[Rfam]
RNA sequence: UGAGGUCGAAGUGUACCCCGCGUGCCCACCAAUGGCGUAUCGGGGAAUGGAACCGACCGAG
Dot-bracket structure: ...(((((.......(((((..((((.......))))...)))))........)))))...
Rfam assigns this 61-nucleotide sequence from Trypanosoma cruzi to the family "Trypanosomatid snoRNA TB9Cs4H1". On this family, see Liang et al., RNA 2005: "A genome-wide analysis of C/D and H/ACA-like small nucleolar RNAs in Trypanosoma brucei reveals a trypanosome-specific pattern of rRNA modification". The source organism's lineage runs through Eukaryota, Metakinetoplastina, Trypanosomatida, Trypanosoma and Schizotrypanum. The sequence is in the family's curated seed alignment. Rfam links the family to the GO terms nucleolus and RNA processing.